A member of the RNA family "Small nucleolar RNA snoR8a" from Kalanchoe fedtschenkoi, 88 nucleotides long.
The family's consensus secondary structure was predicted with WAR.
A search with the family's covariance model found it, with a score of 73 bits.
A reference for the family is Brown et al. (2001), "Multiple snoRNA gene clusters from Arabidopsis", RNA.
The source organism's lineage runs through Eukaryota, Streptophyta, Spermatophyta, Magnoliopsida and Kalanchoe.
[Rfam]
RNA sequence: UCGGCUGCGAUGAUUGUAAAAAAUUCCUCGUACUGAAUUGCCUGCGGGCAUGACAGACUACCGAAUACACCCAUAGAAUAUGAGCGCC
Numbered sequence: 001u002c003g004g005c006u007g008c009g010a011u012g013a014u015u016g017u018a019a020a021a022a023a024u025u026c027c028u029c030g031u032a033c034u035g036a037a038u039u040g041c042c043u044g045c046g047g048g049c050a051u052g053a054c055a056g057a058c059u060a061c062c063g064a065a066u067a068c069a070c071c072c073a074u075a076g077a078a079u080a081u082g083a084g085c086g087c088c
Stems, first nucleotide, its partner, number of pairs: 003088002006086002